[Rfam]
RNA sequence: AUAAAAGGGAAUAACCGUUUUCGUAUAAUUCCGGGAAUCGGCCCGGAAGUCUCUACGAGGUCACCGUAAAUGAUCUGGCUACGAAAAAAAAGCGGUUCACG
Numbered sequence: 001a002u003a004a005a006a007g008g009g010a011a012u013a014a015c016c017g018u019u020u021u022c023g024u025a026u027a028a029u030u031c032c033g034g035g036a037a038u039c040g041g042c043c044c045g046g047a048a049g050u051c052u053c054u055a056c057g058a059g060g061u062c063a064c065c066g067u068a069a070a071u072g073a074u075c076u077g078g079c080u081a082c083g084a085a086a087a088a089a090a091a092g093c094g095g096u097u098c099a100c101g
Base pairs, nucleotide, nucleotide: 018087019086020085021084022083023082024081025080029048030047031046032045033044034043035042058076059075060074061073062072063071

Annotation: A member of the RNA family "Purine riboswitch aptamer" from Paenibacillus naphthalenovorans, 101 nucleotides long. Taxonomically the source falls in Paenibacillus (Bacteria, Bacilli, Caryophanales, Paenibacillaceae).